[Rfam]
RNA sequence: GGUGUCCAAACCAUUGAUGCCGUAAGGCGUUGAGCAC
Numbered sequence: 001g002g003u004g005u006c007c008a009a010a011c012c013a014u015u016g017a018u019g020c021c022g023u024a025a026g027g028c029g030u031u032g033a034g035c036a037c
Stems, first nucleotide, its partner, number of pairs: 016031006
Rfam assigns this 37-nucleotide RNA sequence from Picosynechococcus sp. PCC 7002 to the family "CRISPR RNA direct repeat element". Pairs were carried over by alignment from the consensus structure, which was predicted with WAR. Its family is annotated with defense response in the Gene Ontology. Taxonomically the source falls in Picosynechococcus (Bacteria, Bacillati, Cyanophyceae, Geminocystaceae). Rfam 15.1 lists 253 matches to the family in 19 species. It scores 44 bits against the family's covariance model.